[Rfam]
RNA: SAM (S-adenosyl methionine) riboswitch aptamer
Organism: Crystallibacter crystallopoietes
RNA sequence: AAUCAAGAGUUCCAACCUUCGGCCCUGGCCGGUUGGACGGCAACCCUCGUAGCUGUAGCGGGGUGCCCCAGGUGAAGAUUCGACGCCGGCCCAAACGGGAGGCGUAAGUAUGGCGC
Number, nucleotide and partner (000 for none) at each position: 001a080002a079003u078004c077005a000006a000007g000008a000009g038010u000011u037012c036013c035014a034015a033016c032017c000018u000019u000020c000021g030022g029023c000024c000025c000026u000027g000028g000029c022030c021031g000032g016033u015034u014035g013036g012037a011038c009039g067040g066041c065042a000043a000044c063045c062046c061047u000048c058049g000050u000051a000052g000053c000054u000055g000056u000057a000058g048059c000060g000061g046062g045063g044064u000065g041066c040067c039068c000069c000070a000071g000072g000073u000074g000075a000076a000077g004078a003079u002080u001081c000082g000083a105084c104085g103086c102087c101088g000089g000090c099091c098092c097093a000094a000095a000096c000097g092098g091099g090100a000101g087102g086103c085104g084105u083106a000107a000108g000109u000110a000111u000112g000113g000114c000115g000116c000